[Rfam]
The family of this 121-nucleotide RNA sequence from Neorhizobium sp. SOG26 is "Alphaproteobacterial ar14".
The family has 118 seed sequences and 784 matches in Rfam 15.1.
Its family is annotated with biological process involved in symbiotic interaction in the Gene Ontology.
Taxonomically the source falls in Neorhizobium (Bacteria, Pseudomonadati, Alphaproteobacteria, Rhizobiaceae).
The match comes from Rfam's covariance-model search (106 bits).
Pairs were carried over by alignment from the consensus structure.

RNA sequence: AAUCAUCGACAGGCGCACUCCUCCUCCCAGCGCCUCCGAUGGGACCAGCAACACCUCCUCCUCCCGGUUGUUGGUCAGUAUCGAAAGCCCGGCGCUCCUCCUCCCGCGCCGGGCUUUCUCU
Numbered sequence: 001a002a003u004c005a006u007c008g009a010c011a012g013g014c015g016c017a018c019u020c021c022u023c024c025u026c027c028c029a030g031c032g033c034c035u036c037c038g039a040u041g042g043g044a045c046c047a048g049c050a051a052c053a054c055c056u057c058c059u060c061c062u063c064c065c066g067g068u069u070g071u072u073g074g075u076c077a078g079u080a081u082c083g084a085a086a087g088c089c090c091g092g093c094g095c096u097c098c099u100c101c102u103c104c105c106g107c108g109c110c111g112g113g114c115u116u117u118c119u120c121u
Stems, first nucleotide, its partner, number of pairs: 007038002011035006043076010085116011
Dot-bracket structure: ......((..((((((.............)))))).))....((((((((((..............))))))))))........(((((((((((..........))))))))))).....